mraW RNA: a 110-nucleotide RNA from Lentzea albidocapillata.
By type it is a cis-regulatory element.
It scores 62 bits against the family's covariance model.
[Rfam]
RNA sequence: CGAUUCGGGUGCCGUGAGGCCUCGGUCCGCUCGAUCAUCGGCCCUGGCGCACCUUCCCCGGCGCCAGGUUCGACGGGCGGGCGGGGACCUGACGUCACCCGAAACGCGCA
Numbered sequence: 001c002g003a004u005u006c007g008g009g010u011g012c013c014g015u016g017a018g019g020c021c022u023c024g025g026u027c028c029g030c031u032c033g034a035u036c037a038u039c040g041g042c043c044c045u046g047g048c049g050c051a052c053c054u055u056c057c058c059c060g061g062c063g064c065c066a067g068g069u070u071c072g073a074c075g076g077g078c079g080g081g082c083g084g085g086g087a088c089c090u091g092a093c094g095u096c097a098c099c100c101g102a103a104a105c106g107c108g109c110a
Stems, first nucleotide, its partner, number of pairs: 010097002013094003018089002021086003025082008038073004043068008